[Rfam]
Phenylalanine leader peptide: a 124-nucleotide RNA sequence from Erwinia tasmaniensis. Rfam 15.1 lists 379 matches to the family in 290 species. The family's RNA type in Rfam is cis-regulatory leader.
RNA sequence: UAAGCAUGAACGCUGCUCUUUUUCGUUUCUUUUUUUACUUUAGCACCUGAUUUCGGGGGCUUUUGCGCAUAGAAAAGAAACGAAAAAUCGCGCUGAAAGCCUCCCUCGUGGAGGCUUUUUUCGU
Numbered sequence: 001u002a003a004g005c006a007u008g009a010a011c012g013c014u015g016c017u018c019u020u021u022u023u024c025g026u027u028u029c030u031u032u033u034u035u036u037a038c039u040u041u042a043g044c045a046c047c048u049g050a051u052u053u054c055g056g057g058g059g060c061u062u063u064u065g066c067g068c069a070u071a072g073a074a075a076a077g078a079a080a081c082g083a084a085a086a087a088u089c090g091c092g093c094u095g096a097a098a099g100c101c102u103c104c105c106u107c108g109u110g111g112a113g114g115c116u117u118u119u120u121u122c123g124u
Base pairs, nucleotide, nucleotide: 015091016090020086021085022084023083024082025081026080027079028078029077030076031075032074033073035071037070041055056066058064059063096118097117098116099115100114101113102112103111104110
Overview
Its family is annotated with cellular amino acid metabolic process in the Gene Ontology. Pairs were carried over by alignment from the consensus structure, which was predicted with CMfinder. On this family, see Gurvich et al., Nucleic Acids Res 2010: "Two groups of phenylalanine biosynthetic operon leader peptides genes: a high level of apparently incidental frameshifting in decoding Escherichia coli pheL". It scores 61 bits against the family's covariance model.